[Rfam]
RNA sequence: GCCGGUCCUCGGUAGUGGCUUACGGGAGAGUCCCGUUGGCUUCGAUCGAAGACCGGC
Numbered sequence: 001g002c003c004g005g006u007c008c009u010c011g012g013u014a015g016u017g018g019c020u021u022a023c024g025g026g027a028g029a030g031u032c033c034c035g036u037u038g039g040c041u042u043c044g045a046u047c048g049a050a051g052a053c054c055g056g057c
Base pairs, nucleotide, nucleotide: 001057002056003055004054005053006052007051009049010048011047012046013045017041018040019039020038022036023035024034025033026032027031
RNA: Actino-pnp RNA
Organism: Amycolatopsis methanolica